[Rfam]
RNA sequence: CCUGAACAGCUGCAUGCAGCCUGGCCCUGCCCUCACUGGGAACCUCCUUCUUCCGGGGUACUAGACAGAAUCCUGAGCACUUUCCUGGAGG
Dot-bracket structure: (((....((.(((.((.(..((((....((((.....(((((.....)))))...)))).))))......).).).))).))......)))
A member of the RNA family "mir-1324 microRNA precursor family" from Cebus imitator, 91 nucleotides long. Gene Ontology terms of the family: miRNA-mediated post-transcriptional gene silencing and RISC complex. The organism belongs to Cebus, within Eukaryota. The base pairs follow the family's consensus structure, which was predicted with RNAalifold.